[Rfam]
Nucleotides: 082
Base pairs, nucleotide, nucleotide: 001028002027003026004024005023006022007021008020010019011018052077053076054074055073056072057071058070060069061068062067
Number, partner (000 for none) and nucleotide at each position: 001028c002027a003026g004024g005023c006022c007021a008020u009000a010019u011018c012000a013000c014000a015000u016000u017000u018011g019010a020008a021007u022006g023005g024004c025000a026003c027002u028001g029000a030000c031000g032000a033000a034000a035000a036000a037000a038000c039000a040000u041000a042000a043000a044000u045000g046000a047000u048000a049000a050000a051000a052077c053076g054074c055073c056072u057071u058070g059000a060069u061068c062067c063000g064000a065000a066000a067062g068061g069060a070058c071057a072056g073055g074054g075000a076053c077052g078000g079000a080000g081000a082000c
Shown here is an 82-nucleotide sequence from Alteribacillus iranensis, a member of the family "pan motif". The match comes from Rfam's covariance-model search (56 bits). Lineage of the source: Bacteria > Bacillati > Bacilli > Bacillaceae > Alteribacillus.